[Rfam]
RNA: Eukaryotic small subunit ribosomal RNA, nucleotides 22 to 616
RNA sequence: AGUUAUAUGCUUGUCUCAAGAUUAAGCCAUGCAUGUCUAAGUACACACGAAUUAACAGUGAAACCGCAAAAGGCUCAUUAUAUCAGUUAUGGUUCCUUAGAUCGUUAACAGUUACUUGGAUAACUGUGGUAAUUCUAGAGCUAAUACAUGCAAUUAAAACACGGACCUUUUGGAACGUGUGCUUUUAUUAGGCUAAAACCAAGCGAUCGCAAGAUCGUUUUAUUGGUUGAACUCUAGAUAACAUGCAGAUCGUAUGGUCUUGUACCGACGACAGAUCUUUCAAAUGUCUGCCCUAUCAACUUUUGAUGGUAGUAUCUAGGACUACCAUGGUUGCAACGGGUAACGGGGAAUCAGGGUUCGAAUCCGGAGAGGGAGCCUGAGAAACGGCUACCACAUCUAAAGAAAGGCAGCAGCGCGUAAAUUACCCACUCCCAGCUCGGGGAGGUAGUGACGAAAAUAACAUACAGACUCAUAUCCGAGCCCUGUAAUUGGAAUGAGUACACUUUAAAUCCUUUACCAAGGACCGAUUGUAGGGCAAGUCUGGUGCCCUCACCCUCCGUAAUUCCAGCUCCAAAAGCGUAUAUUAAAGUUGUUG
Numbered sequence: 001a002g003u004u005a006u007a008u009g010c011u012u013g014u015c016u017c018a019a020g021a022u023u024a025a026g027c028c029a030u031g032c033a034u035g036u037c038u039a040a041g042u043a044c045a046c047a048c049g050a051a052u053u054a055a056c057a058g059u060g061a062a063a064c065c066g067c068a069a070a071a072g073g074c075u076c077a078u079u080a081u082a083u084c085a086g087u088u089a090u091g092g093u094u095c096c097u098u099a100g101a102u103c104g105u106u107a108a109c110a111g112u113u114a115c116u117u118g119g120a121u122a123a124c125u126g127u128g129g130u131a132a133u134u135c136u137a138g139a140g141c142u143a144a145u146a147c148a149u150g151c152a153a154u155u156a157a158a159a160c161a162c163g164g165a166c167c168u169u170u171u172g173g174a175a176c177g178u179g180u181g182c183u184u185u186u187a188u189u190a191g192g193c194u195a196a197a198a199c200c201a202a203g204c205g206a207u208c209g210c211a212a213g214a215u216c217g218u219u220u221u222a223u224u225g226g227u228u229g230a231a232c233u234c235u236a237g238a239u240a241a242c243a244u245g246c247a248g249a250u251c252g253u254a255u256g257g258u259c260u261u262g263u264a265c266c267g268a269c270g271a272c273a274g275a276u277c278u279u280u281c282a283a284a285u286g287u288c289u290g291c292c293c294u295a296u297c298a299a300c301u302u303u304u305g306a307u308g309g310u311a312g313u314a315u316c317u318a319g320g321a322c323u324a325c326c327a328u329g330g331u332u333g334c335a336a337c338g339g340g341u342a343a344c345g346g347g348g349a350a351u352c353a354g355g356g357u358u359c360g361a362a363u364c365c366g367g368a369g370a371g372g373g374a375g376c377c378u379g380a381g382a383a384a385c386g387g388c389u390a391c392c393a394c395a396u397c398u399a400a401a402g403a404a405a406g407g408c409a410g411c412a413g414c415g416c417g418u419a420a421a422u423u424a425c426c427c428a429c430u431c432c433c434a435g436c437u438c439g440g441g442g443a444g445g446u447a448g449u450g451a452c453g454a455a456a457a458u459a460a461c462a463u464a465c466a467g468a469c470u471c472a473u474a475u476c477c478g479a480g481c482c483c484u485g486u487a488a489u490u491g492g493a494a495u496g497a498g499u500a501c502a503c504u505u506u507a508a509a510u511c512c513u514u515u516a517c518c519a520a521g522g523a524c525c526g527a528u529u530g531u532a533g534g535g536c537a538a539g540u541c542u543g544g545u546g547c548c549c550u551c552a553c554c555c556u557c558c559g560u561a562a563u564u565c566c567a568g569c570u571c572c573a574a575a576a577g578c579g580u581a582u583a584u585u586a587a588a589g590u591u592g593u594u595g
Base pairs, nucleotide, nucleotide: 001585002584003583005582006581007580008579009578010577011576016454017453019449020416026414027413030412031411032410035067036066041064042063047059048058074369075368076367084290085289086288089285090284093283094282099278100277101276102275115150117148118147124140125139127137128136129135159180160179161178162177163176166173167172185240188237189236190235198228200226206215207214208213250271251270252269253268255267256266257265258264292340293339294338299331300330301329306328307327308326309325310324311323312322313321344366345365346364347363348359349358350357351356371392372391374389375388376387394406396404397402422447424446425445426444430442431441432440433439461491462490463487464486465485466484467483469480470479471478498518500515502514528574529573530572532570533569541568542567543566544565